[Rfam]
RNA: Ribosomal protein L10 leader
Organism: Lactobacillus pasteurii
RNA sequence: UAGUUAGAGUAAAUUCUACCUAAGACUCGGGUGGCAUGACGCCUUAAUAUCCCGCCGAGGCCAGAAGAUAAUGAAGAAUUCAAACGCUCCAUGUCUUUUUGGCAUGGAGUUUCUAUUUAAACAGG
Numbered sequence: 001u002a003g004u005u006a007g008a009g010u011a012a013a014u015u016c017u018a019c020c021u022a023a024g025a026c027u028c029g030g031g032u033g034g035c036a037u038g039a040c041g042c043c044u045u046a047a048u049a050u051c052c053c054g055c056c057g058a059g060g061c062c063a064g065a066a067g068a069u070a071a072u073g074a075a076g077a078a079u080u081c082a083a084a085c086g087c088u089c090c091a092u093g094u095c096u097u098u099u100u101g102g103c104a105u106g107g108a109g110u111u112u113c114u115a116u117u118u119a120a121a122c123a124g125g
Stems, first nucleotide, its partner, number of pairs: 028054004033043003086110010